mir-548 microRNA precursor family: an 84-nucleotide RNA from Cercocebus atys.
RNA sequence: UAUUAGGUUGGUGCAAAAAUAAUUGUGGUUUCUGCUAUUAAAAGUAAUUGCAAAAAUCGCAAUUAUUUUUGCACCAACCUAAUA
Number, nucleotide and partner (000 for none) at each position: 001u084002a083003u082004u081005a080006g079007g078008u077009u076010g075011g074012u073013g072014c071015a070016a069017a068018a067019a066020u065021a064022a063023u062024u061025g060026u059027g058028g057029u056030u055031u054032c000033u052034g051035c050036u000037a048038u047039u046040a045041a000042a000043a000044g000045u040046a039047a038048u037049u000050g035051c034052a033053a000054a031055a030056a029057u028058c027059g026060c025061a024062a023063u022064u021065a020066u019067u018068u017069u016070u015071g014072c013073a012074c011075c010076a009077a008078c007079c006080u005081a004082a003083u002084a001

Pairs were carried over by alignment from the consensus structure, which was predicted with WAR. The literature on the family includes a 2010 paper in BMC Biol by Witten et al., "Ultra-high throughput sequencing-based small RNA discovery and discrete statistical biomarker analysis in a collection of cervical tumours and matched controls". The source organism's lineage runs through Eukaryota, Teleostomi, Eutheria, Cercopithecoidea and Cercocebus.